[Rfam]
RNA sequence: UGUUGGAACUAUUCGAAACAACACAGCGAGUUAAAAUAAGGCUUUGUCCGUACACAACUUGUAAAAGUGGCACCCGAUUCGGGUGCAUUUUU
Dot-bracket structure: (.(((...((.(..........).)).....))).)...((......)).......(.((....)).).(((((((...)))))))......
RNA: Trans-activating crRNA
Organism: Streptococcus equinus